[Rfam]
A member of the RNA family "Lysine riboswitch aptamer" from Alkalibaculum sporogenes, 174 nucleotides long.
Lineage of the source: Bacteria > Clostridia > Eubacteriales > Eubacteriaceae > Alkalibaculum.
RNA sequence: UCUUUUGAUAGAGGUGCAUUUAUUAUUAGUACUAUUAAUGAUGAUAUCAGGAUCAGUUGAAUUAAUGGGAAAGGAAAAAAUGCCGAAGUAAUUUUUACCUGAGGAUAAAAAUUGCUGGGAUUAUCGUAAAUAACGAUAAUACUGUCAUCUUAGUGAUGGGGAGCUAUCUGUUAU
Numbered sequence: 001u002c003u004u005u006u007g008a009u010a011g012a013g014g015u016g017c018a019u020u021u022a023u024u025a026u027u028a029g030u031a032c033u034a035u036u037a038a039u040g041a042u043g044a045u046a047u048c049a050g051g052a053u054c055a056g057u058u059g060a061a062u063u064a065a066u067g068g069g070a071a072a073g074g075a076a077a078a079a080a081u082g083c084c085g086a087a088g089u090a091a092u093u094u095u096u097a098c099c100u101g102a103g104g105a106u107a108a109a110a111a112u113u114g115c116u117g118g119g120a121u122u123a124u125c126g127u128a129a130a131u132a133a134c135g136a137u138a139a140u141a142c143u144g145u146c147a148u149c150u151u152a153g154u155g156a157u158g159g160g161g162a163g164c165u166a167u168c169u170g171u172u173a174u
Base pairs, nucleotide, nucleotide: 007168008167009166010165011164016083017082018081019080020079021078023076024075032068033067034066035065036064037063038062039061087116088115089114090113091112092111093110094109095108096107097106117143118142120140121139122138123137124136125135126134127133145159146158147157148156149155
Background:
Pairs were carried over by alignment from the consensus structure, which is taken from published work.